[Rfam]
RNA: ASpks TB sRNA
Organism: Actinoplanes digitatis
RNA sequence: CUUGAUGCCGCCCAGCCGCAGCGGCCGGUCCGCCGGACGGUCCGCGCCGUACGUGGCGAGCAGCGCCUGCGCCUC
Numbered sequence: 001c002u003u004g005a006u007g008c009c010g011c012c013c014a015g016c017c018g019c020a021g022c023g024g025c026c027g028g029u030c031c032g033c034c035g036g037a038c039g040g041u042c043c044g045c046g047c048c049g050u051a052c053g054u055g056g057c058g059a060g061c062a063g064c065g066c067c068u069g070c071g072c073c074u075c
Stems, first nucleotide, its partner, number of pairs: 015025003031071003038065002043060001045058001047056003